[Rfam]
RNA sequence: GUCUGAGCUCAGUAACAAGGGCUUUUGACCUAUGUGGGGACAUUGAGAUGGUGGAACAUUGGCCCGUCCCACUGGUCGGAUCUGUUGUAGCAAGUUAUGGGAUGCCCAGUCCAAGCCGAAAGUGAAUCUUGUUUGUUGAGCGAAGGCUUGACUCAGGAGGUUCCUAAAGAGGUGUGAGGCUGGUUUCACAGAGCAGCGCUCACCUUCCUCUCUCGGUAAUGGACGGAUCACAGCUCGAAGCCACUCAGAUCUAGCAUGGCUUGGUGGCUUGUACCCAGCUUAACCACCAUCUUU
Numbered sequence: 001g002u003c004u005g006a007g008c009u010c011a012g013u014a015a016c017a018a019g020g021g022c023u024u025u026u027g028a029c030c031u032a033u034g035u036g037g038g039g040a041c042a043u044u045g046a047g048a049u050g051g052u053g054g055a056a057c058a059u060u061g062g063c064c065c066g067u068c069c070c071a072c073u074g075g076u077c078g079g080a081u082c083u084g085u086u087g088u089a090g091c092a093a094g095u096u097a098u099g100g101g102a103u104g105c106c107c108a109g110u111c112c113a114a115g116c117c118g119a120a121a122g123u124g125a126a127u128c129u130u131g132u133u134u135g136u137u138g139a140g141c142g143a144a145g146g147c148u149u150g151a152c153u154c155a156g157g158a159g160g161u162u163c164c165u166a167a168a169g170a171g172g173u174g175u176g177a178g179g180c181u182g183g184u185u186u187c188a189c190a191g192a193g194c195a196g197c198g199c200u201c202a203c204c205u206u207c208c209u210c211u212c213u214c215g216g217u218a219a220u221g222g223a224c225g226g227a228u229c230a231c232a233g234c235u236c237g238a239a240g241c242c243a244c245u246c247a248g249a250u251c252u253a254g255c256a257u258g259g260c261u262u263g264g265u266g267g268c269u270u271g272u273a274c275c276c277a278g279c280u281u282a283a284c285c286a287c288c289a290u291c292u293u294u
Stems, first nucleotide, its partner, number of pairs: 001041003005024006029038003045293010058280001059278003062274001065271002068267002072263001074261004078252007087244002090241001098237004103232002106226002109224005115217005121211002124163007132155001135152007164169001171200005180191003
Shown here is a 294-nucleotide RNA from Brassica carinata, a member of the family "Plant signal recognition particle RNA". The match comes from Rfam's covariance-model search (164 bits). Taxonomically the source falls in Brassica (Eukaryota, Streptophyta, Euphyllophyta, Spermatophyta).